[Rfam]
Background:
Shown here is a 100-nucleotide RNA sequence from Asparagus officinalis, a member of the family "Small nucleolar RNA snoR99". A reference for the family is Marker et al. (2002), "Experimental RNomics: identification of 140 candidates for small non-messenger RNAs in the plant Arabidopsis thaliana", Curr Biol. The family has 9 seed sequences and 733 matches in Rfam 15.1. The source organism's lineage runs through Eukaryota, Euphyllophyta, Liliopsida, Petrosaviidae and Asparagus. The base pairs follow the family's consensus structure, which was predicted with WAR. By type it is an H/ACA-box small nucleolar RNA.
RNA sequence: AUGCCUUUGGGAUGAACUGGUCCCAAUAGAAAAUACCAUCUGCUUCACUUUGCUAGCUAAUUUAUUUUACUUUUAGCUAGCCAUUAAAGGUGGGAUAUGG
Numbered sequence: 001a002u003g004c005c006u007u008u009g010g011g012a013u014g015a016a017c018u019g020g021u022c023c024c025a026a027u028a029g030a031a032a033a034u035a036c037c038a039u040c041u042g043c044u045u046c047a048c049u050u051u052g053c054u055a056g057c058u059a060a061u062u063u064a065u066u067u068u069a070c071u072u073u074u075a076g077c078u079a080g081c082c083a084u085u086a087a088a089g090g091u092g093g094g095a096u097a098u099g100g
Base pairs, nucleotide, nucleotide: 036093037092038091039090040089052081053080054079055078056077057076058075059074